Rfam assigns this 98-nucleotide RNA from Aerococcus kribbianus to the family "SAM riboswitch aptamer (S box leader)".
[Rfam]
RNA sequence: AACUUAUCCAGAGUAAGUGGAGGGAAUUGGCCCGACGAAACUUCAGCAACCUGCCCCUAGGUAAGGUGCUAAAUCCAACUCAUUGAGAGAGAUAAGUC
Numbered sequence: 001a002a003c004u005u006a007u008c009c010a011g012a013g014u015a016a017g018u019g020g021a022g023g024g025a026a027u028u029g030g031c032c033c034g035a036c037g038a039a040a041c042u043u044c045a046g047c048a049a050c051c052u053g054c055c056c057c058u059a060g061g062u063a064a065g066g067u068g069c070u071a072a073a074u075c076c077a078a079c080u081c082a083u084u085g086a087g088a089g090a091g092a093u094a095a096g097u098c
Stems, first nucleotide, its partner, number of pairs: 002097007013044001015043004022033003027078004045070004050066002052063004074090001079087003
Clan: SAM clan.